RNA sequence: GGGUCUCUCUUGUCAGACCAGAUUUGAGCCUGAGAGCUCUCUGGCCGACUAGGGAACCCAC
Numbered sequence: 001g002g003g004u005c006u007c008u009c010u011u012g013u014c015a016g017a018c019c020a021g022a023u024u025u026g027a028g029c030c031u032g033a034g035a036g037c038u039c040u041c042u043g044g045c046c047g048a049c050u051a052g053g054g055a056a057c058c059c060a061c
Base pairs, nucleotide, nucleotide: 001059002058003057004056006055007054008053009052010051012049013048014047016045018044019043020042021041022040026039027038028037029036
RNA: Trans-activation response element (TAR)